[Rfam]
RNA sequence: UCAGUUGGUCGGGCAACCGCACCAGACCAAUACCGAAAGGUGCGCUGGUGAGGAAAGUCCGGGCUCCAUGGAAAUACGGUGCCGGGUAAUACCCGGCGGGGGCGACCCUAGGGAAAGUGCCACAGAAAGUAAACCGCCUGUUUUUUAUAGGCAAGGGUGAAAGGGUGGAGUAAGAGCCCACCGCAUUGUCAGUAAUGGUGAUGGCAAGGUAAACCCCACCGGGAGCAAAACCGAAUAGAGAUAGCACGUACCAUCCUUUAAGGAUGAUACAGGCCCUGUUUCCGGGCUGGCUAUCCGGGUGGGUUGCAAGAGGCGGGUGGUAACAUCCGUCCCAGAUGAAUGGUUGCCGCACAGGUUUGUCCUGUCAUACAGAACCCGGCUUACAGGCCAACUGAUUUU
Numbered sequence: 001u002c003a004g005u006u007g008g009u010c011g012g013g014c015a016a017c018c019g020c021a022c023c024a025g026a027c028c029a030a031u032a033c034c035g036a037a038a039g040g041u042g043c044g045c046u047g048g049u050g051a052g053g054a055a056a057g058u059c060c061g062g063g064c065u066c067c068a069u070g071g072a073a074a075u076a077c078g079g080u081g082c083c084g085g086g087u088a089a090u091a092c093c094c095g096g097c098g099g100g101g102g103c104g105a106c107c108c109u110a111g112g113g114a115a116a117g118u119g120c121c122a123c124a125g126a127a128a129g130u131a132a133a134c135c136g137c138c139u140g141u142u143u144u145u146u147a148u149a150g151g152c153a154a155g156g157g158u159g160a161a162a163g164g165g166u167g168g169a170g171u172a173a174g175a176g177c178c179c180a181c182c183g184c185a186u187u188g189u190c191a192g193u194a195a196u197g198g199u200g201a202u203g204g205c206a207a208g209g210u211a212a213a214c215c216c217c218a219c220c221g222g223g224a225g226c227a228a229a230a231c232c233g234a235a236u237a238g239a240g241a242u243a244g245c246a247c248g249u250a251c252c253a254u255c256c257u258u259u260a261a262g263g264a265u266g267a268u269a270c271a272g273g274c275c276c277u278g279u280u281u282c283c284g285g286g287c288u289g290g291c292u293a294u295c296c297g298g299g300u301g302g303g304u305u306g307c308a309a310g311a312g313g314c315g316g317g318u319g320g321u322a323a324c325a326u327c328c329g330u331c332c333c334a335g336a337u338g339a340a341u342g343g344u345u346g347c348c349g350c351a352c353a354g355g356u357u358u359g360u361c362c363u364g365u366c367a368u369a370c371a372g373a374a375c376c377c378g379g380c381u382u383a384c385a386g387g388c389c390a391a392c393u394g395a396u397u398u399u
Base pairs, nucleotide, nucleotide: 001395002394003393004392005391006390007389008388009387010386011384012348013347014346015345016344017343018342020050021049022048023047024046025045028042055382056381057380059379060378061377062376063375064225065224066223067222073281074280077221078220079219080218081217082096083095084094085093086092097111098109099108100107101106112216113215117214118213119210120209121208134156135155136152137151138150139149140148141147164182165181166180167179168178183205184203185202186201187200188199189198190197191196229305230304231303232302240295241294242293243292244291273287274286275285276284312331313330314329315328316327317326318325319324